Rfam assigns this 58-nucleotide sequence to the family "Plastid-ccsA-ndhD-2 3UTR RNA". The literature on the family includes a 1987 paper in Cell by Stern and Gruissem, "Control of plastid gene expression: 3' inverted repeats act as mRNA processing and stabilizing elements, but do not terminate transcription". It is one of the family's seed sequences. Rfam classes the family as a cis-regulatory element. Rfam's curators write: Plastid ccsA-ndhD-2 is a non-coding RNA (ncRNA) recognised in plastids. It was found in the three prime untranslated region (3UTR) of ccsA and ndhD genes, its 3UTR location suggests a role in transcript maturation.
RNA sequence: GGUAUUUGGGAGAACCUUUUGAAUCAAGUAAUAUAGUGAUUCAAAAGGUUCUCCGCCG
Numbered sequence: 001g002g003u004a005u006u007u008g009g010g011a012g013a014a015c016c017u018u019u020u021g022a023a024u025c026a027a028g029u030a031a032u033a034u035a036g037u038g039a040u041u042c043a044a045a046a047g048g049u050u051c052u053c054c055g056c057c058g
Base pairs, nucleotide, nucleotide: 008056010053011052012051013050014049015048016047017046018045019044020043021042022041023040024039025038026037